[Rfam]
RNA sequence: CUCUUGCGCCUGCUGCGGGCAGAUGCAGUGGAUGUGCGUGUCGAUGCCGCCGGCCGUGACAAUCUUGCCCUCUCCCGCCACGACGUCAGUGCAGCUUCCAAUGACCAUGUUGGCCGUCACGCCGUCCAUGACGUCCGGACUGCCAGCCUUGCCGAUUCCGACGAUGACGCCGCGCUUGACGCCGAUGUCGGCCUUGUAGAUUCCGCUCCAGUCGACUAUGAGGGCGUUGGUGAUGACCAGGUCGAGCGACUCGUCGUCUGUCCGCCCGGACGCCUGGCCCAUGCCCUCGCGCAG
Numbered sequence: 001c002u003c004u005u006g007c008g009c010c011u012g013c014u015g016c017g018g019g020c021a022g023a024u025g026c027a028g029u030g031g032a033u034g035u036g037c038g039u040g041u042c043g044a045u046g047c048c049g050c051c052g053g054c055c056g057u058g059a060c061a062a063u064c065u066u067g068c069c070c071u072c073u074c075c076c077g078c079c080a081c082g083a084c085g086u087c088a089g090u091g092c093a094g095c096u097u098c099c100a101a102u103g104a105c106c107a108u109g110u111u112g113g114c115c116g117u118c119a120c121g122c123c124g125u126c127c128a129u130g131a132c133g134u135c136c137g138g139a140c141u142g143c144c145a146g147c148c149u150u151g152c153c154g155a156u157u158c159c160g161a162c163g164a165u166g167a168c169g170c171c172g173c174g175c176u177u178g179a180c181g182c183c184g185a186u187g188u189c190g191g192c193c194u195u196g197u198a199g200a201u202u203c204c205g206c207u208c209c210a211g212u213c214g215a216c217u218a219u220g221a222g223g224g225c226g227u228u229g230g231u232g233a234u235g236a237c238c239a240g241g242u243c244g245a246g247c248g249a250c251u252c253g254u255c256g257u258c259u260g261u262c263c264g265c266c267c268g269g270a271c272g273c274c275u276g277g278c279c280c281a282u283g284c285c286c287u288c289g290c291g292c293a294g
Base pairs, nucleotide, nucleotide: 001294002293005291006290007289008288011163012162014160015159017075018074019073021071022070029052030051031050033049034048036047037046038045039044056068057067058066077152080149082147089143090142093141094140096138097137098133106130107129110128112126113125114124116122169278170277171276172275175269176268178266180264181263183260191225192224193223194222195221229258230257233254235252236251
The record is a 294-nucleotide sequence from Ophiocordyceps camponoti-floridani, which matches "5' ureB small RNA" in Rfam. A search with the family's covariance model found it, with a score of 100 bits. The family has 13 seed sequences and 4,812 matches in Rfam 15.1.